[Rfam]
RNA sequence: CACUCAUCGAGACCGGCGGAGGGACAGGCCCUUUGAAGCCGGGGCAACCUGCAGGAUCAAACCUGCAACGGUGCCAACUCCUGCGGGGCGCUUAAGCGUCGACCGAGAGAUGGGAU
Numbered sequence: 001c002a003c004u005c006a007u008c009g010a011g012a013c014c015g016g017c018g019g020a021g022g023g024a025c026a027g028g029c030c031c032u033u034u035g036a037a038g039c040c041g042g043g044g045c046a047a048c049c050u051g052c053a054g055g056a057u058c059a060a061a062c063c064u065g066c067a068a069c070g071g072u073g074c075c076a077a078c079u080c081c082u083g084c085g086g087g088g089c090g091c092u093u094a095a096g097c098g099u100c101g102a103c104c105g106a107g108a109g110a111u112g113g114g115a116u
Stems, first nucleotide, its partner, number of pairs: 003114006013042005021031003025083004043075004048071002050067004079108001084105003
SAM riboswitch aptamer (S box leader): a 116-nucleotide RNA sequence from Dyella choica. Rfam links the family to the GO term regulation of gene expression. Taxonomically the source falls in Dyella (Bacteria, Pseudomonadota, Gammaproteobacteria, Lysobacterales).